A member of the RNA family "tRNA" from a Vallitaleaceae bacterium, 73 nucleotides long.
[Rfam]
RNA sequence: GGGUGUAUAUCUCAGUUGGUAGAGUCCUCGCUCGACAUGCGAGUUGUCGCUGGUUCGAGUCCAGUUGCGCCCA
Number, nucleotide and partner (000 for none) at each position: 001g072002g071003g070004u069005g068006u067007a066008u000009a000010u000011c024012u023013c022014a000015g000016u000017u000018g000019g000020u000021a000022g013023a012024g011025u000026c000027c043028u042029c041030g040031c039032u000033c000034g000035a000036c000037a000038u000039g031040c030041g029042a028043g027044u000045u000046g000047u000048c000049g065050c064051u063052g062053g061054u000055u000056c000057g000058a000059g000060u000061c053062c052063a051064g050065u049066u007067g006068c005069g004070c003071c002072c001073a000
Notes: It is annotated as a transfer RNA.